The family of this 45-nucleotide RNA from Paramuricea clavata is "Histone 3' UTR stem-loop".
[Rfam]
RNA sequence: ACACCGGUUCUUUUAGGAACCACCAAUUUUACAAAAAAGAAUAAA
Numbered sequence: 001a002c003a004c005c006g007g008u009u010c011u012u013u014u015a016g017g018a019a020c021c022a023c024c025a026a027u028u029u030u031a032c033a034a035a036a037a038a039g040a041a042u043a044a045a
Base pairs, nucleotide, nucleotide: 006021007020008019009018010017011016
The match comes from Rfam's covariance-model search (37 bits). Rfam describes the family as follows. The mRNAs of metazoan histone genes lack a poly-A tail. 3' end processing occurs at a site between a highly conserved stem-loop (modelled by this family) and a purine rich region around 20 nts downstream (the histone downstream element, or HDE). The stem-loop is bound by a 31 kDa stem-loop binding protein (SLBP - also termed the histone hairpin binding protein, or HBP). Together with U7 snRNA binding of the HDE, SLBP binding nucleate s the formation of the processing complex. The family's RNA type in Rfam is cis-regulatory element.